[Rfam]
RNA sequence: AAUUAUAUUUGGCGACAGCCGAAGACAGCAGGGGCAAUAGCUUAAUCAUCCUGCCUAGGUUGAUGCGAAUUACAGAUCAAACAUAAGGUCUGUCUCAAGAUUAACUAACUAUAGUAAAAAUCUACCGCGAUACAUCAACCUAAUGCCGUGCAAAUUGUAGCAAGGCUUUUUUUAUUGUCUG
Numbered sequence: 001a002a003u004u005a006u007a008u009u010u011g012g013c014g015a016c017a018g019c020c021g022a023a024g025a026c027a028g029c030a031g032g033g034g035c036a037a038u039a040g041c042u043u044a045a046u047c048a049u050c051c052u053g054c055c056u057a058g059g060u061u062g063a064u065g066c067g068a069a070u071u072a073c074a075g076a077u078c079a080a081a082c083a084u085a086a087g088g089u090c091u092g093u094c095u096c097a098a099g100a101u102u103a104a105c106u107a108a109c110u111a112u113a114g115u116a117a118a119a120a121u122c123u124a125c126c127g128c129g130a131u132a133c134a135u136c137a138a139c140c141u142a143a144u145g146c147c148g149u150g151c152a153a154a155u156u157g158u159a160g161c162a163a164g165g166c167u168u169u170u171u172u173u174a175u176u177g178u179c180u181g
Stems, first nucleotide, its partner, number of pairs: 028054006034041002145166003149162003153158001
Ribosomal protein L10 leader: a 181-nucleotide RNA from Cyanobacterium aponinum. Its family is annotated with regulation of gene expression in the Gene Ontology.